[Rfam]
RNA sequence: UCCUCGCUCAAAGAAUCGCAAUCAAAGCUUACGCACAGAAGAAGUCUUCCUUCUUCAUACCAUUACUCCUAGCUUUGGGAGAAAGUCCCCGGACACCCUGCGCCCUCGUCUUAAAACCGCGAGGGUUCCUCAUAUAACAAGCCAGGCACUGCGGAAACGCGCCGCCAUAGAAGCAUUUUUCAUAGCGGCUUACGCCUCUUUUCCCUUUCCUUCCUAUUUCCCUUCGGGGAAGAAGGGCUCGUCCCCGUUCUAGCCCGACUCUUCGGAUGUUUUAUUCUGUGGAGGAAACAAUGGUGGUUUAGAUGGGGCGGGGUCUUUUGACGAGGGGGAGGUUACUAUUCGUCGUGGUUCGAUAGUCAUGCGAUUGCUUGGUUUCCCACGUGUAUUUUAUUAUAUAUGUGUGGAGCCGGAUAACUCGAUGGGGCUUAUUCUUGAGGCGAGG
Numbered sequence: 001u002c003c004u005c006g007c008u009c010a011a012a013g014a015a016u017c018g019c020a021a022u023c024a025a026a027g028c029u030u031a032c033g034c035a036c037a038g039a040a041g042a043a044g045u046c047u048u049c050c051u052u053c054u055u056c057a058u059a060c061c062a063u064u065a066c067u068c069c070u071a072g073c074u075u076u077g078g079g080a081g082a083a084a085g086u087c088c089c090c091g092g093a094c095a096c097c098c099u100g101c102g103c104c105c106u107c108g109u110c111u112u113a114a115a116a117c118c119g120c121g122a123g124g125g126u127u128c129c130u131c132a133u134a135u136a137a138c139a140a141g142c143c144a145g146g147c148a149c150u151g152c153g154g155a156a157a158c159g160c161g162c163c164g165c166c167a168u169a170g171a172a173g174c175a176u177u178u179u180u181c182a183u184a185g186c187g188g189c190u191u192a193c194g195c196c197u198c199u200u201u202u203c204c205c206u207u208u209c210c211u212u213c214c215u216a217u218u219u220c221c222c223u224u225c226g227g228g229g230a231a232g233a234a235g236g237g238c239u240c241g242u243c244c245c246c247g248u249u250c251u252a253g254c255c256c257g258a259c260u261c262u263u264c265g266g267a268u269g270u271u272u273u274a275u276u277c278u279g280u281g282g283a284g285g286a287a288a289c290a291a292u293g294g295u296g297g298u299u300u301a302g303a304u305g306g307g308g309c310g311g312g313g314u315c316u317u318u319u320g321a322c323g324a325g326g327g328g329g330a331g332g333u334u335a336c337u338a339u340u341c342g343u344c345g346u347g348g349u350u351c352g353a354u355a356g357u358c359a360u361g362c363g364a365u366u367g368c369u370u371g372g373u374u375u376c377c378c379a380c381g382u383g384u385a386u387u388u389u390a391u392u393a394u395a396u397a398u399g400u401g402u403g404g405a406g407c408c409g410g411a412u413a414a415c416u417c418g419a420u421g422g423g424g425c426u427u428a429u430u431c432u433u434g435a436g437g438c439g440a441g442g
Stems, first nucleotide, its partner, number of pairs: 002442006008435004014366006022079001023077006038056007083427003087424004115127004184199002187196003208328006217321002225311001227309001369410008